[Rfam]
RNA: Group II catalytic intron D1-D4-3
RNA sequence: CUCGUCGCGAGGCGGGAUCUGAAGGAAGCCGAAGGCAAAACGCUGACCCGACGUACAGGAAUCCCAUCAGGCGGUUGCAUGGGAUGAGAAGGCCAAUAUCUUCAAAGUCCGAUACCUGAACGGAACAUGUCGCCGUAAAUGCGGCGGGUAUAAGCGUGGAGGUGGGUGUG
Numbered sequence: 001c002u003c004g005u006c007g008c009g010a011g012g013c014g015g016g017a018u019c020u021g022a023a024g025g026a027a028g029c030c031g032a033a034g035g036c037a038a039a040a041c042g043c044u045g046a047c048c049c050g051a052c053g054u055a056c057a058g059g060a061a062u063c064c065c066a067u068c069a070g071g072c073g074g075u076u077g078c079a080u081g082g083g084a085u086g087a088g089a090a091g092g093c094c095a096a097u098a099u100c101u102u103c104a105a106a107g108u109c110c111g112a113u114a115c116c117u118g119a120a121c122g123g124a125a126c127a128u129g130u131c132g133c134c135g136u137a138a139a140u141g142c143g144g145c146g147g148g149u150a151u152a153a154g155c156g157u158g159g160a161g162g163u164g165g166g167u168g169u170g
Base pairs, nucleotide, nucleotide: 001016002015003014004013005012006011030168031167035163036162040157041156042155043154044153046149047148048147049146050145062144063143065141066140071136072135073134075132077130078129079128080127081126082110083109084108085107088103089102090101091100